The family of this 90-nucleotide sequence from Spiribacter sp. 2438 is "t44 RNA". The literature on the family includes a 2002 paper in Nucleic Acids Res by Tjaden et al., "Transcriptome analysis of Escherichia coli using high-density oligonucleotide probe arrays". This family consists of a number of bacterial RNA genes of between 135 and 170 bases in length. By type it is a small RNA. Lineage of the source: Bacteria > Pseudomonadati > Pseudomonadota > Ectothiorhodospiraceae > Spiribacter.

RNA sequence: GCAAUGCAAUCAAAAUUCCACACAUGCACCGACACGGUUGGCGGGGUGCCCCCCAGGGGGUUGUCGACUGCGGGUGCAUGGAGGCCUAAC
Numbered sequence: 001g002c003a004a005u006g007c008a009a010u011c012a013a014a015a016u017u018c019c020a021c022a023c024a025u026g027c028a029c030c031g032a033c034a035c036g037g038u039u040g041g042c043g044g045g046g047u048g049c050c051c052c053c054c055a056g057g058g059g060g061u062u063g064u065c066g067a068c069u070g071c072g073g074g075u076g077c078a079u080g081g082a083g084g085c086c087u088a089a090c
Stems, first nucleotide, its partner, number of pairs: 023080008035070009048061005
Dot-bracket structure: ......................((((((((....(((((((((....(((((....))))))))))))))..))))))))..........